Shown here is a 69-nucleotide RNA sequence from Amphiprion percula, a member of the family "mir-338 microRNA precursor family".
The base pairs follow the family's consensus structure, which was predicted with RNAalifold.
[Rfam]
RNA sequence: CCUGAAACAAUAUCCUGGUGCUGCCUGAGUGCUCCUUAUCGACUCCAGCAUCAGUGAUUUUGUUGCAGG
Numbered sequence: 001c002c003u004g005a006a007a008c009a010a011u012a013u014c015c016u017g018g019u020g021c022u023g024c025c026u027g028a029g030u031g032c033u034c035c036u037u038a039u040c041g042a043c044u045c046c047a048g049c050a051u052c053a054g055u056g057a058u059u060u061u062g063u064u065g066c067a068g069g
Stems, first nucleotide, its partner, number of pairs: 006064005012058003015054009

Description: The family has 36 seed sequences and 1,231 matches in Rfam 15.1. The literature on the family includes a 2005 paper in Genes Dev by Chen et al., "The developmental miRNA profiles of zebrafish as determined by small RNA cloning".